Record summary:
Rfam assigns this 116-nucleotide RNA to the family "Betaproteobacteria-1 RNA".
RNA sequence: CGCUCAGCUUGUGGGGUAACCGCAGGAGCUGGGGGAUAAGCGAGACUGUGGGAUAGUUCUGAGAACUCGCAAACGGCGGCGAAGAGAGCACCGUUGGAACGAAAAGGCUGUCGGGU
Numbered sequence: 001c002g003c004u005c006a007g008c009u010u011g012u013g014g015g016g017u018a019a020c021c022g023c024a025g026g027a028g029c030u031g032g033g034g035g036a037u038a039a040g041c042g043a044g045a046c047u048g049u050g051g052g053a054u055a056g057u058u059c060u061g062a063g064a065a066c067u068c069g070c071a072a073a074c075g076g077c078g079g080c081g082a083a084g085a086g087a088g089c090a091c092c093g094u095u096g097g098a099a100c101g102a103a104a105a106g107g108c109u110g111u112c113g114g115g116u
Base pairs, nucleotide, nucleotide: 001035003033004032005031006030007029008028009027010026022049023048024047025046040070041069042068043067044066057098058097059096072095073094074093075092076091084112085111087109088108089107